The family of this 53-nucleotide RNA sequence is "DUF3800-VI RNA". The base pairs follow the family's consensus structure, which is taken from published work. It is one of the family's seed sequences.
RNA sequence: CAGUUGGGAGGUCCGCCGUAGCGGAUCGCAGGGGUUUGUCCCCACCCGGCUGC
Numbered sequence: 001c002a003g004u005u006g007g008g009a010g011g012u013c014c015g016c017c018g019u020a021g022c023g024g025a026u027c028g029c030a031g032g033g034g035u036u037u038g039u040c041c042c043c044a045c046c047c048g049g050c051u052g053c
Base pairs, nucleotide, nucleotide: 001052002051003050005048006047007046008045010027011026012025013024014023015022016021031043032042033041034040